[Rfam]
Rfam assigns this 72-nucleotide RNA to the family "S6-S18-Chlorobi ribosomal protein leader". The base pairs follow the family's consensus structure, which is taken from published work. Rfam's curators put it in the seed alignment.
RNA sequence: UUUGCGGGGGUGUUGCGUUUAUUGCGUGAAGCUUGGUCCGGUGUGCGCAUCCCGGAACCUCGCGUCUGCAAG
Numbered sequence: 001u002u003u004g005c006g007g008g009g010g011u012g013u014u015g016c017g018u019u020u021a022u023u024g025c026g027u028g029a030a031g032c033u034u035g036g037u038c039c040g041g042u043g044u045g046c047g048c049a050u051c052c053c054g055g056a057a058c059c060u061c062g063c064g065u066c067u068g069c070a071a072g
Stems, first nucleotide, its partner, number of pairs: 001072008010063003013030001014028005035059003038055004